[Rfam]
Nucleotides: 069
Stems, first nucleotide, its partner, number of pairs: 001068007010022004024040005045061005
Number, partner (000 for none) and nucleotide at each position: 001068g002067u003066u004065u005064u006063u007062a008000g009000a010022g011021u012020u013019g014000a015000a016000g017000u018000a019013c020012a021011a022010c023000a024040a025039u026038g027037g028036u029000u030000u031000u032000u033000c034000a035000u036028g037027u038026c039025a040024u041000u042000g043000g044000u045061c046060a047059u048058g049057g050000u051000u052000a053000a054000a055000u056000c057049c058048c059047a060046u061045g062007u063006a064005a065004g066003a067002a068001c069000u
The family of this 69-nucleotide RNA sequence from Propithecus coquereli is "tRNA".
The base pairs follow the family's consensus structure, which is taken from published work.
The organism belongs to Propithecus, within Eukaryota.